The record is a 181-nucleotide sequence from Zestomonas carbonaria, which matches "Pseudomonas sRNA P1" in Rfam. Rfam classes the family as a non-coding RNA gene.
RNA sequence: ACACCCGAUUUAUUGCUGUUAUGGGUUUCGACCGAGCUUAGCCUUGUUCAUUUUUUUACACAAUACGUCCGUAAAAAAUCACACACACGCCCACUGAACCCCGCGCCGGGCAUGGCUCCGCGGGGCCUCGCAAUGCCCUGAAAUGCCCCAAAACUGGCGAUAAGGCCCUGAUUUGGGGCAA
Numbered sequence: 001a002c003a004c005c006c007g008a009u010u011u012a013u014u015g016c017u018g019u020u021a022u023g024g025g026u027u028u029c030g031a032c033c034g035a036g037c038u039u040a041g042c043c044u045u046g047u048u049c050a051u052u053u054u055u056u057u058a059c060a061c062a063a064u065a066c067g068u069c070c071g072u073a074a075a076a077a078a079u080c081a082c083a084c085a086c087a088c089g090c091c092c093a094c095u096g097a098a099c100c101c102c103g104c105g106c107c108g109g110g111c112a113u114g115g116c117u118c119c120g121c122g123g124g125g126c127c128u129c130g131c132a133a134u135g136c137c138c139u140g141a142a143a144u145g146c147c148c149c150a151a152a153a154c155u156g157g158c159g160a161u162a163a164g165g166c167c168c169u170g171a172u173u174u175g176g177g178g179c180a181a
Base pairs, nucleotide, nucleotide: 023102024101025100027098028097034094036092041090042089044085046084047083052078053077054076055075056074057073058072059071165179166178168176

Background: The base pairs follow the family's consensus structure, which was predicted with RNAalifold. Rfam's curators write: This small RNA (sRNA) was computationally identified in the genome of the opportunistic pathogen Pseudomonas aeruginosa and its expression verified by northern blot analysis. There appears to be two related copies of P1 sRNA in the P.aeruginosa PA01 genome and both copies appear to be located upstream of predicted glutamine synthetase genes. This sRNA appears to be conserved amongst several Pseudomonas species. P1 has a predicted Rho independent terminator at the 3' end but the function of P1 is unknown. It scores 135 bits against the family's covariance model.